[Rfam]
RNA: mir-315 microRNA precursor family
Nucleotides: 082
Base pairs, nucleotide, nucleotide: 001082002081003080004079005078012070013069015067016066017065018064020062021061022060023059024058025057028055029054030053031052032051033050034049
Number, partner (000 for none) and nucleotide at each position: 001082g002081c003080u004079c005078a006000a007000a008000a009000u010000g011000g012070u013069u014000u015067u016066g017065a018064u019000u020062g021061u022060u023059g024058c025057u026000c027000a028055g029054a030053a031052a032051g033050c034049c035000u036000u037000g038000u039000u040000u041000a042000u043000u044000g045000u046000a047000a048000u049034g050033g051032c052031u053030u054029u055028c056000u057025a058024g059023c060022a061021a062020u063000a064018a065017u066016c067015a068000u069013a070012a071000u072000c073000a074000g075000a076000a077000g078005u079004g080003g081002g082001c